[Rfam]
RNA sequence: AAAUAUUUUUAUCUCCGAGCCUUUUCACCUGAAACUCUAAAGUUAUGGUGGUUGGCCGGCAGGGUUUGAAGGGAAACCUUCAAGCCUCCCAUUGCGGAAAGGAGAGCUUAAUUCGCACGU
Numbered sequence: 001a002a003a004u005a006u007u008u009u010u011a012u013c014u015c016c017g018a019g020c021c022u023u024u025u026c027a028c029c030u031g032a033a034a035c036u037c038u039a040a041a042g043u044u045a046u047g048g049u050g051g052u053u054g055g056c057c058g059g060c061a062g063g064g065u066u067u068g069a070a071g072g073g074a075a076a077c078c079u080u081c082a083a084g085c086c087u088c089c090c091a092u093u094g095c096g097g098a099a100a101g102g103a104g105a106g107c108u109u110a111a112u113u114c115g116c117a118c119g120u
Base pairs, nucleotide, nucleotide: 006111012105013104014103015102016101019056020055021054025051026050027049028048029047033044034043035042036041062087063086064085065084066083067082068081069080070079071078072077088097089096
RNA: Molybdenum/Tungsten riboswitch aptamer (Moco RNA motif)